The family of this 98-nucleotide RNA sequence from Oligella urethralis is "Glycine riboswitch aptamer". This family represents the bacterial glycine riboswitch. Glycine riboswitches usually consist of two metabolite-binding aptamers domains with similar structures in tandem. The aptamers cooperatively bind glycine to regulate the expression of downstream genes. In Bacillus subtilis, this riboswitch is found upstream of the gcvT operon which controls glycine degradation. The pairing is the family consensus, mapped onto this sequence.
RNA sequence: UAUCCGCCAACUGGAGAGCGGUUAGACGACUAACCCACCGAAGGAGCAAGUAGCCUUAGCUAUCAAAACUCUCAGGUACCAAGAACAGAGGGAGUGGC
Numbered sequence: 001u002a003u004c005c006g007c008c009a010a011c012u013g014g015a016g017a018g019c020g021g022u023u024a025g026a027c028g029a030c031u032a033a034c035c036c037a038c039c040g041a042a043g044g045a046g047c048a049a050g051u052a053g054c055c056u057u058a059g060c061u062a063u064c065a066a067a068a069c070u071c072u073c074a075g076g077u078a079c080c081a082a083g084a085a086c087a088g089a090g091g092g093a094g095u096g097g098c
Base pairs, nucleotide, nucleotide: 007092008091011088012087013086020035021034022033023032037077038076039075040073041072044071045070046069050064